[Rfam]
TPP riboswitch aptamer (THI element): a 101-nucleotide RNA sequence from Beijerinckia sp. 28-YEA-48.
RNA sequence: UGCGCCAGCCAGGGGUGCUGCCGGAUUGCCGGCGGCUGAGAUCACACCCUUAGAACCUGAUCUGGUUUGCACCAGCGGAGGGACGGCGAGCGGGCGAAGCC
Dot-bracket structure: .......(((((((.((((((((......))))))).......)..)))).....(((...((((......))))...)))...)))..............
Numbered sequence: 001u002g003c004g005c006c007a008g009c010c011a012g013g014g015g016u017g018c019u020g021c022c023g024g025a026u027u028g029c030c031g032g033c034g035g036c037u038g039a040g041a042u043c044a045c046a047c048c049c050u051u052a053g054a055a056c057c058u059g060a061u062c063u064g065g066u067u068u069g070c071a072c073c074a075g076c077g078g079a080g081g082g083a084c085g086g087c088g089a090g091c092g093g094g095c096g097a098a099g100c101c
Stems, first nucleotide, its partner, number of pairs: 008087003011050004016044001017036007056081003062075004

Overview: Lineage of the source: Bacteria > Pseudomonadati > Alphaproteobacteria > Beijerinckiaceae > Beijerinckia. From the family's description: Vitamin B(1) in its active form thiamin pyrophosphate (TPP) is an essential coenzyme that is synthesised by coupling of pyrimidine and thiazole moieties in bacteria.